[Rfam]
RNA sequence: UUUAUGAGGCAGCAUAGGGCUGAAUUGCGGUAGGACUUAUAUGAUUCUACCCCUUUUCAUUUUUAUGCUGCUUGGAG
Numbered sequence: 001u002u003u004a005u006g007a008g009g010c011a012g013c014a015u016a017g018g019g020c021u022g023a024a025u026u027g028c029g030g031u032a033g034g035a036c037u038u039a040u041a042u043g044a045u046u047c048u049a050c051c052c053c054u055u056u057u058c059a060u061u062u063u064u065a066u067g068c069u070g071c072u073u074g075g076a077g
Base pairs, nucleotide, nucleotide: 008072009071010070011069012068013067014066015065016064017063018062019061021059022058023057024056027053029052030051032048033047034046035045036043
mir-5890 microRNA precursor family: a 77-nucleotide RNA from Haemonchus placei. Its family is annotated with miRNA-mediated post-transcriptional gene silencing and RISC complex in the Gene Ontology. The source organism's lineage runs through Eukaryota, Metazoa, Ecdysozoa, Rhabditida and Haemonchus.